A member of the RNA family "mir-8517 microRNA precursor family" from Plutella xylostella, 108 nucleotides long.

RNA sequence: UUACAAUACGUUUUAACUUACAAACUGUUUUGUCCCUCUCCGACAAAGAACAAUUUAUUCUUUGUCAGAGAGGGACAAAACAGUUUGUAAGUUAAAAUGUAUUGUAAC
Number, nucleotide and partner (000 for none) at each position: 001u107002u106003a105004c104005a103006a102007u000008a000009c000010g000011u097012u096013u095014u094015a093016a092017c091018u090019u089020a088021c087022a086023a085024a084025c083026u082027g081028u080029u069030u068031u067032g066033u000034c064035c000036c000037u000038c000039u000040c000041c000042g000043a000044c000045a000046a000047a000048g000049a059050a058051c000052a056053a000054u000055u000056u052057a000058u050059u049060c000061u000062u000063u000064g034065u000066c032067a031068g030069a029070g000071a000072g000073g000074g000075a000076c000077a000078a000079a000080a028081c027082a026083g025084u024085u023086u022087g021088u020089a019090a018091g017092u016093u015094a014095a013096a012097a011098u000099g000100u000101a000102u006103u005104g004105u003106a002107a001108c000
Annotation
NCBI's taxonomy places the organism under Eukaryota, Altocrustacea, Amphiesmenoptera, Neolepidoptera, Plutella.